[Rfam]
Nucleotides: 090
Base pairs, nucleotide, nucleotide: 002089003088004087005086006085008084011081012080013079014078015077016076017075018074020072021071023069024068026067027066028065029064030063031062032061034060035059036058037057038056039055
Number, partner (000 for none) and nucleotide at each position: 001000u002089g003088g004087u005086c006085u007000g008084g009000c010000u011081c012080u013079g014078u015077g016076u017075g018074g019000a020072a021071g022000a023069c024068u025000a026067g027066u028065g029064a030063u031062u032061u033000u034060g035059u036058u037057g038056u039055u040000c041000u042000g043000a044000u045000u046000u047000a048000u049000a050000a051000a052000g053000g054000u055039g056038a057037c058036a059035a060034c061032a062031a063030a064029u065028c066027a067026u068024a069023g070000c071021c072020u073000g074018c075017c076016a077015u078014a079013c080012a081011g082000c083000a084008c085006a086005g087004a088003c089002c090000u
The family of this 90-nucleotide RNA sequence from Accipiter nisus is "mir-7 microRNA precursor family". A reference for the family is Lagos-Quintana et al. (2001), "Identification of novel genes coding for small expressed RNAs", Science. It scores 80 bits against the family's covariance model. About the family: This family represents the microRNA (miRNA) precursor mir-7. Gene Ontology terms of the family: RISC complex and miRNA-mediated post-transcriptional gene silencing.